[Rfam]
RNA sequence: AUAACAGAUAGAGGCGCGCUGUUUAUGAGUACUGUAUGGGAGAUGGGAGAAGUCGAUGAACUGCAGAAAAGGAAACAGCGCCGAAGGGCCGGUAUUCUCCGUACCGGUGACCUGGUCAGUAUGUGAACAACAUGCUGACUGUCAUCAGCGAUGAUGGAGAGCUAUCUGGUUU
Numbered sequence: 001a002u003a004a005c006a007g008a009u010a011g012a013g014g015c016g017c018g019c020u021g022u023u024u025a026u027g028a029g030u031a032c033u034g035u036a037u038g039g040g041a042g043a044u045g046g047g048a049g050a051a052g053u054c055g056a057u058g059a060a061c062u063g064c065a066g067a068a069a070a071g072g073a074a075a076c077a078g079c080g081c082c083g084a085a086g087g088g089c090c091g092g093u094a095u096u097c098u099c100c101g102u103a104c105c106g107g108u109g110a111c112c113u114g115g116u117c118a119g120u121a122u123g124u125g126a127a128c129a130a131c132a133u134g135c136u137g138a139c140u141g142u143c144a145u146c147a148g149c150g151a152u153g154a155u156g157g158a159g160a161g162c163u164a165u166c167u168g169g170u171u172u
Base pairs, nucleotide, nucleotide: 006167007166008165009164010163011162016081017080018079019078020077021076022075023074024073032066033065034064035063036062038061085113086112087111088108089107090106091105092104093103094102114140115139116138117137118136119135120134121133122132123131124130142157143156144155145154146153147152
About this RNA
The family of this 172-nucleotide RNA from Caldanaerobius fijiensis is "Lysine riboswitch aptamer". Rfam describes the family as follows. Riboswitches are metabolite binding domains within certain messenger RNAs that serve as precision sensors for their corresponding targets. Gene Ontology term of the family: lysine biosynthetic process.